[Rfam]
RNA: mir-317 microRNA precursor family
RNA sequence: UGCAAUUGCCACUGGGAUAUUGCCCUGUGCUCGCUUUGAAUAUUGUGUAAGCAAGUGAACACAGCUGGUGGUAUCCAGUGGCCGUUUGGC
Dot-bracket structure: .......(((((..(((.((.((((((.(.((........................)).).)))..))).)).))).)))))........